[Rfam]
RNA sequence: UGCCUAUAAAAUAAUUUAUUCUGUGGUCACUUUGAGUUACAAUAAUUACUAUAAUAAUUUACGAGAUUAUAGUAACUUCUUACUAUAUGAUUUACUAUAACGUUACGGUAAAUAUCCUCAUGUGUUAUAGUAACGUAACUAUCGUAAAUAUGUAUUCACUUUAUCGUAAAUUAGUAUAUAAAAUUAUCAUAAAUGGAGGUGGCUACAGAAUAAUUUAUUCUGUAGUUG
Numbered sequence: 001u002g003c004c005u006a007u008a009a010a011a012u013a014a015u016u017u018a019u020u021c022u023g024u025g026g027u028c029a030c031u032u033u034g035a036g037u038u039a040c041a042a043u044a045a046u047u048a049c050u051a052u053a054a055u056a057a058u059u060u061a062c063g064a065g066a067u068u069a070u071a072g073u074a075a076c077u078u079c080u081u082a083c084u085a086u087a088u089g090a091u092u093u094a095c096u097a098u099a100a101c102g103u104u105a106c107g108g109u110a111a112a113u114a115u116c117c118u119c120a121u122g123u124g125u126u127a128u129a130g131u132a133a134c135g136u137a138a139c140u141a142u143c144g145u146a147a148a149u150a151u152g153u154a155u156u157c158a159c160u161u162u163a164u165c166g167u168a169a170a171u172u173a174g175u176a177u178a179u180a181a182a183a184u185u186a187u188c189a190u191a192a193a194u195g196g197a198g199g200u201g202g203c204u205a206c207a208g209a210a211u212a213a214u215u216u217a218u219u220c221u222g223u224a225g226u227u228g
Base pairs, nucleotide, nucleotide: 001228002227004225005224006223007222008221010219011218012217013216014215016213017212018211019210020209021208022207023206024205025204026203027202028201029200030199031198032197033196037192038191039190042187043186044185045184046183047182050178051177052176053175055173056172057171058170059169060168061167062166065165066164067163069161072157074155080147081146082145083144087142088141089140091138092137093132094131095130096129097128098127099126100125101124102123103122107117108116

Rfam assigns this 228-nucleotide RNA sequence from Miscanthus lutarioriparius to the family "MIR6217 microRNA precursor family". Taxonomically the source falls in Miscanthus (Eukaryota, Streptophyta, Magnoliopsida, Panicoideae). The base pairs follow the family's consensus structure, which was predicted with RNAalifold.